Notes:
This 116-nucleotide RNA from Paenibacillus nuruki belongs to the Rfam family "epsC RNA". The base pairs follow the family's consensus structure, which is taken from published work.
[Rfam]
RNA sequence: GGGUAAUGUCUCCUGCACCCAUAUCACUGGAGAUACUCGGUCAUGCUGUGGGCUAUGUAAGUAGCCUUAGACGUUUAUCGUCAAGGGUAUGAUGGUGAGGACGGGUUAAAUGCCCG
Numbered sequence: 001g002g003g004u005a006a007u008g009u010c011u012c013c014u015g016c017a018c019c020c021a022u023a024u025c026a027c028u029g030g031a032g033a034u035a036c037u038c039g040g041u042c043a044u045g046c047u048g049u050g051g052g053c054u055a056u057g058u059a060a061g062u063a064g065c066c067u068u069a070g071a072c073g074u075u076u077a078u079c080g081u082c083a084a085g086g087g088u089a090u091g092a093u094g095g096u097g098a099g100g101a102c103g104g105g106u107u108a109a110a111u112g113c114c115c116g
Stems, first nucleotide, its partner, number of pairs: 001020004007035007036099004040093008050067006070082004102116005